RNA sequence: CCAAAGGCUCUUUUCAGAGCCACCCACUACCUCACAAAAGAGCUA
Numbered sequence: 001c002c003a004a005a006g007g008c009u010c011u012u013u014u015c016a017g018a019g020c021c022a023c024c025c026a027c028u029a030c031c032u033c034a035c036a037a038a039a040g041a042g043c044u045a
Stems, first nucleotide, its partner, number of pairs: 006021006
Shown here is a 45-nucleotide RNA from Crypturellus soui, a member of the family "Histone 3' UTR stem-loop". Rfam's curators write: The mRNAs of metazoan histone genes lack a poly-A tail. 3' end processing occurs at a site between a highly conserved stem-loop (modelled by this family) and a purine rich region around 20 nts downstream (the histone downstream element, or HDE). A search with the family's covariance model found it, with a score of 39 bits. The family has 50 seed sequences and 44,596 matches in Rfam 15.1. The family's consensus secondary structure is taken from published work. Lineage of the source: Eukaryota > Deuterostomia > Vertebrata > Dinosauria > Crypturellus. Rfam classes the family as a cis-regulatory element.